[Rfam]
RNA sequence: AGCCCUCUGUUGUGCCUCCCUUCGCCGAGCCGCCGCAUCGUCGGCGGGGUAGGCGAAUUGGACGCUGUAAUAGAGAUCGGGCUGCUCUU
Numbered sequence: 001a002g003c004c005c006u007c008u009g010u011u012g013u014g015c016c017u018c019c020c021u022u023c024g025c026c027g028a029g030c031c032g033c034c035g036c037a038u039c040g041u042c043g044g045c046g047g048g049g050u051a052g053g054c055g056a057a058u059u060g061g062a063c064g065c066u067g068u069a070a071u072a073g074a075g076a077u078c079g080g081g082c083u084g085c086u087c088u089u
Stems, first nucleotide, its partner, number of pairs: 002082004053065003
Dot-bracket structure: .((((...............................................(((.......))).............)))).......
RNA: Rhizobiales sRNA Atu_Ti3
Organism: Plasmid Ti